[Rfam]
RNA sequence: GCCGAGCUCAGCAGCGUGAGCUUGUAACCCGAGCGGGGGCAUUAAAGGUGGUGUGGACGUUGCCGUAGCGCUGCGGGCCUGGUCCGGCUGUGCUCCUGCUGGCCCGCCCGUUCCAAGUUGCGUAGUGGACCGACUGGGGCCUGUGCGAAAGCUGGGCCUCACGGGCCAUAAUGUGGCAGGCACAGCGUGAGGCUGGCUUCACAGAGCAGCGACCACUGCCCGCUUCCAACGGUGGAAGGAUAACGGGCCUCUGCACAGCCUGGGCCGAUUGGGCCUCGCAGCCUUCUCCAAUGAACCACCAUUUUU
Numbered sequence: 001g002c003c004g005a006g007c008u009c010a011g012c013a014g015c016g017u018g019a020g021c022u023u024g025u026a027a028c029c030c031g032a033g034c035g036g037g038g039g040c041a042u043u044a045a046a047g048g049u050g051g052u053g054u055g056g057a058c059g060u061u062g063c064c065g066u067a068g069c070g071c072u073g074c075g076g077g078c079c080u081g082g083u084c085c086g087g088c089u090g091u092g093c094u095c096c097u098g099c100u101g102g103c104c105c106g107c108c109c110g111u112u113c114c115a116a117g118u119u120g121c122g123u124a125g126u127g128g129a130c131c132g133a134c135u136g137g138g139g140c141c142u143g144u145g146c147g148a149a150a151g152c153u154g155g156g157c158c159u160c161a162c163g164g165g166c167c168a169u170a171a172u173g174u175g176g177c178a179g180g181c182a183c184a185g186c187g188u189g190a191g192g193c194u195g196g197c198u199u200c201a202c203a204g205a206g207c208a209g210c211g212a213c214c215a216c217u218g219c220c221c222g223c224u225u226c227c228a229a230c231g232g233u234g235g236a237a238g239g240a241u242a243a244c245g246g247g248c249c250u251c252u253g254c255a256c257a258g259c260c261u262g263g264g265c266c267g268a269u270u271g272g273g274c275c276u277c278g279c280a281g282c283c284u285u286c287u288c289c290a291a292u293g294a295a296c297c298a299c300c301a302u303u304u305u306u
Stems, first nucleotide, its partner, number of pairs: 001040003004023007028037003044306010055296001058293005065286001067284002071281007079273002081266007090256003094253001101249006108239002111237005117230004122226001124224003127167002130164003135161009145152002175220005186211003193204003

Shown here is a 306-nucleotide RNA from Hordeum vulgare, a member of the family "Plant signal recognition particle RNA". The family's RNA type in Rfam is non-coding RNA gene. Lineage of the source: Eukaryota > Viridiplantae > Streptophytina > Poaceae > Hordeum vulgare. Pairs were carried over by alignment from the consensus structure, which is taken from published work.